This 79-nucleotide RNA from Chiloscyllium punctatum belongs to the Rfam family "mir-363 microRNA precursor family". Its family is annotated with miRNA-mediated post-transcriptional gene silencing and RISC complex in the Gene Ontology. Clan: mir-19 clan. The base pairs follow the family's consensus structure, which was predicted with RNAalifold. It scores 88 bits against the family's covariance model.
RNA sequence: GCUGUUGUCGGGUGGAUCACGAUGCAAUUUUGAUUCCUCUUCUUCAGUAAAAUUGCACGGUAUCCAUCUGUAAUCCGCA
Numbered sequence: 001g002c003u004g005u006u007g008u009c010g011g012g013u014g015g016a017u018c019a020c021g022a023u024g025c026a027a028u029u030u031u032g033a034u035u036c037c038u039c040u041u042c043u044u045c046a047g048u049a050a051a052a053u054u055g056c057a058c059g060g061u062a063u064c065c066a067u068c069u070g071u072a073a074u075c076c077g078c079a
Base pairs, nucleotide, nucleotide: 009070010069011068012067013066014065015064016063017062019061020060023057024056025055026054027053028052029051030050031049